Record summary: This 80-nucleotide RNA sequence from Micromonospora sp. Llam0 belongs to the Rfam family "ZMP/ZTP riboswitch aptamer (pfl RNA motif)". The base pairs follow the family's consensus structure, which is taken from published work.
RNA sequence: GGCAGUCAGUGCGACUGGCGGCACGGGAUGGUGGACCAUCGGGGAGCCGGCCACGGGAGUCGACCGCCUGGGCUCCCGUC
Numbered sequence: 001g002g003c004a005g006u007c008a009g010u011g012c013g014a015c016u017g018g019c020g021g022c023a024c025g026g027g028a029u030g031g032u033g034g035a036c037c038a039u040c041g042g043g044g045a046g047c048c049g050g051c052c053a054c055g056g057g058a059g060u061c062g063a064c065c066g067c068c069u070g071g072g073c074u075c076c077c078g079u080c
Stems, first nucleotide, its partner, number of pairs: 005051003011047002015043002017068005028039004057075005

A search with the family's covariance model found it, with a score of 44 bits.
The organism belongs to Micromonospora, within Bacteria.